[Rfam]
Nucleotides: 081
Stems, first nucleotide, its partner, number of pairs: 002079005008073002012069005018064005024058006031051003
Number, partner (000 for none) and nucleotide at each position: 001000u002079g003078a004077c005076c006075g007000a008073a009072g010000a011000a012069c013068g014067a015066a016065u017000c018064g019063u020062c021061g022060a023000a024058u025057c026056g027055a028054a029053u030000g031051u032050c033049u034000g035000u036000g037000u038000u039000g040000a041000u042000u043000g044000g045000c046000c047000u048000g049033a050032g051031a052000a053029a054028u055027u056026c057025g058024a059000a060022u061021c062020g063019a064018c065016a066015u067014u068013c069012g070000a071000c072009c073008u074000a075006u076005g077004g078003u079002c080000a081000u
Background
Rfam assigns this 81-nucleotide RNA from Thelazia callipaeda to the family "mir-5360 microRNA precursor family". The family's consensus secondary structure was predicted with RNAalifold. Gene Ontology terms of the family: RISC complex and miRNA-mediated post-transcriptional gene silencing. The match comes from Rfam's covariance-model search (96 bits).